Shown here is a 143-nucleotide RNA sequence, a member of the family "RT-14 RNA". Pairs were carried over by alignment from the consensus structure, which is taken from published work. The family's RNA type in Rfam is small RNA.
[Rfam]
RNA sequence: CUCUAAUAUUAUUCGAGAUUGUGUAUUUUAAGGAAUAUAUACAGAGAAAUAUUAGAUAUUAAAGGGGUUUGCUCCAUCCUUAGAAUUGGUAAAUAUGAAUCAUAGAUGAGGUAUUUGUAGAUUUUCGAAGAUAUAGUAAUCUA
Numbered sequence: 001c002u003c004u005a006a007u008a009u010u011a012u013u014c015g016a017g018a019u020u021g022u023g024u025a026u027u028u029u030a031a032g033g034a035a036u037a038u039a040u041a042c043a044g045a046g047a048a049a050u051a052u053u054a055g056a057u058a059u060u061a062a063a064g065g066g067g068u069u070u071g072c073u074c075c076a077u078c079c080u081u082a083g084a085a086u087u088g089g090u091a092a093a094u095a096u097g098a099a100u101c102a103u104a105g106a107u108g109a110g111g112u113a114u115u116u117g118u119a120g121a122u123u124u125u126c127g128a129a130g131a132u133a134u135a136g137u138a139a140u141c142u143a
Base pairs, nucleotide, nucleotide: 003055004054005053006052007051008050009049013047014046020041021040022039023038024037025036026035027034028033078089079088103143104142105141106140107139109137111134112133113132114131120126121125